Rfam assigns this 67-nucleotide sequence from Homo sapiens to the family "mir-4662 microRNA precursor family". Rfam's curators put it in the seed alignment. The family's consensus secondary structure was predicted with RNAalifold. Lineage of the source: Eukaryota > Deuterostomia > Theria > Homininae > Homo. Rfam links the family to the GO terms miRNA-mediated post-transcriptional gene silencing and RISC complex. Rfam 15.1 lists 8 matches to the family in 4 species.
[Rfam]
RNA sequence: UCUAUUUAGCCAAUUGUCCAUCUUUAGCUAUUCUGAAUGCCUAAAGAUAGACAAUUGGCUAAAUAGA
Numbered sequence: 001u002c003u004a005u006u007u008a009g010c011c012a013a014u015u016g017u018c019c020a021u022c023u024u025u026a027g028c029u030a031u032u033c034u035g036a037a038u039g040c041c042u043a044a045a046g047a048u049a050g051a052c053a054a055u056u057g058g059c060u061a062a063a064u065a066g067a
Stems, first nucleotide, its partner, number of pairs: 001067018020048008030038003